Background: The family of this 134-nucleotide RNA sequence from Calidris pygmaea is "Small nucleolar RNA SNORA55". About the family: ACA55 is a member of the H/ACA class of snoRNA that guide the sites of modification of uridines to pseudouridines.

[Rfam]
RNA sequence: GCAUCUGAAUCUUUCCCACUUCUUGCGAUAUAGUGCUGGACUUGGGAACACAUGAUGCAACAGGAGAGCAGAGGAAAUCCAGACAAGCUCCCUUUCACCACAGUGGGACUUGUCUCUAUGCCUUUGCAACACUU
Dot-bracket structure: (((((.......((((((..((................))..)))))).....))))).........((((((.......(((((((.......(((......)))..)))))))......)))))).......

Lineage of the source: Eukaryota > Bilateria > Deuterostomia > Tetrapoda > Calidris. Its family is annotated with nucleolus and RNA processing in the Gene Ontology.